Annotation
A member of the RNA family "Bacterial RNase P class A" from Aquiluna borgnonia, 340 nucleotides long.
[Rfam]
RNA sequence: AGGGUCAACCAGACGGCCGCGACAGAUGUCGAGGAACGUCCGGGCUCCACAGAGCGCGAUGGUGGGUAACGCCCACCCGAGGAAACUCGAGAGACAGUGCAACAGAAAGUAAACCGCCCGCAAGGGUAAGGGUGAAACGGUGGUGUAAGAGACCACCAGCAGAUCAGGUGACUGGUCUGGCUAUGUAAACCUCAUCGGGAGCAAGACCAAGCAGAAGGUGCUACAGCUGCUCGCUUAGCCUUCGGGUAGGUCGCUAGAGCCUGCGGGUAACUGCAGGCCGAGAUAGAUGGCCGUCAGUGCUUCGGCACUACAGAACCCGGCGUAUCGGUUGACCCUCUAC
Number, nucleotide and partner (000 for none) at each position: 001a336002g335003g334004g333005u332006c331007a330008a329009c328010c327011a325012g295013a294014c293015g292016g291017c290018c289019g000020c031021g030022a029023c028024a000025g000026a000027u000028g023029u022030c021031g020032a000033g000034g000035a000036a323037c322038g321039u000040c320041c319042g318043g317044g316045c201046u200047c199048c198049a000050c000051a000052g232053a231054g230055c229056g000057c197058g196059a195060u194061g193062g076063u075064g074065g073066g072067u000068a000069a000070c000071g000072c066073c065074c064075a063076c062077c091078c089079g088080a087081g086082g000083a000084a000085a000086c081087u080088c079089g078090a000091g077092a192093g191094a000095c000096a000097g190098u189099g186100c185101a184102a000103c000104a000105g000106a000107a000108a000109g000110u000111a000112a000113a000114c131115c130116g127117c126118c125119c124120g000121c000122a000123a000124g119125g118126g117127u116128a000129a000130g115131g114132g000133u000134g000135a000136a000137a000138c000139g157140g156141u155142g154143g153144u152145g000146u000147a000148a000149g000150a000151g000152a144153c143154c142155a141156c140157c139158a000159g181160c179161a178162g177163a176164u175165c174166a173167g172168g000169u000170g000171a000172c167173u166174g165175g164176u163177c162178u161179g160180g000181c159182u000183a000184u101185g100186u099187a000188a000189a098190c097191c093192u092193c061194a060195u059196c058197g057198g048199g047200a046201g045202c000203a000204a000205g252206a251207c250208c249209a000210a000211g000212c000213a000214g243215a242216a241217g240218g239219u238220g000221c000222u000223a000224c000225a235226g234227c233228u000229g055230c054231u053232c052233g227234c226235u225236u000237a000238g219239c218240c217241u216242u215243c214244g000245g000246g000247u000248a000249g208250g207251u206252c205253g000254c000255u000256a000257g000258a000259g278260c277261c276262u275263g274264c273265g272266g271267g000268u000269a000270a000271c266272u265273g264274c263275a262276g261277g260278c259279c000280g000281a000282g000283a000284u000285a000286g000287a000288u000289g018290g017291c016292c015293g014294u013295c012296a000297g000298u000299g000300c000301u000302u000303c000304g000305g000306c000307a000308c000309u000310a000311c000312a000313g000314a000315a000316c044317c043318c042319g041320g040321c038322g037323u036324a000325u011326c000327g010328g009329u008330u007331g006332a005333c004334c003335c002336u001337c000338u000339a000340c000
Rfam's curators write: Ribonuclease P (RNase P) is a ubiquitous endoribonuclease, found in archaea, bacteria and eukarya as well as chloroplasts and mitochondria. Gene Ontology terms of the family: tRNA processing, ribonuclease P activity and dimeric ribonuclease P complex. NCBI's taxonomy places the organism under Bacteria, Bacillati, Actinomycetes, Luna cluster, Aquiluna.